[Rfam]
RNA sequence: AGUCAUAAGUUUGAGUCCAUAGCAGAAGUGCUUACAGCAUGGCCUGUCAGAUUCCAAUGAAUCUGCAAAUUUUGCU
Numbered sequence: 001a002g003u004c005a006u007a008a009g010u011u012u013g014a015g016u017c018c019a020u021a022g023c024a025g026a027a028g029u030g031c032u033u034a035c036a037g038c039a040u041g042g043c044c045u046g047u048c049a050g051a052u053u054c055c056a057a058u059g060a061a062u063c064u065g066c067a068a069a070u071u072u073u074g075c076u
Base pairs, nucleotide, nucleotide: 013044017042018041021076022075023074024073025072026071027070028040029039030038048065049064050063051062052061053060054059
Dot-bracket structure: ............[...[[..((((((((((.......)))]].]...(((((((....)))))))....)))))))